The record is a 73-nucleotide RNA from Scyliorhinus torazame, which matches "mir-30 microRNA precursor family" in Rfam. Rfam describes the family as follows. This family consists of the mammalian microRNA (miRNA) precursor mir-30a. Animal miRNAs are transcribed as ~70nt precursors and subsequently processed by the Dicer enzyme to give a ~22nt product. A search with the family's covariance model found it, with a score of 58 bits. A reference for the family is Lagos-Quintana et al. (2001), "Identification of novel genes coding for small expressed RNAs", Science. Gene Ontology terms of the family: gene silencing by miRNA and RISC complex. The base pairs follow the family's consensus structure, which was predicted with PFOLD.
RNA sequence: CCAGGCACUGUAAACAUCCUACACUCAGCUGUAACAUAAAAGAGGCUGAGAGAAGGUUGUUUACUUUAACUGG
Dot-bracket structure: .(((.....(((((((.(((.(.(((((((.............))))))).).))).))))))).....))).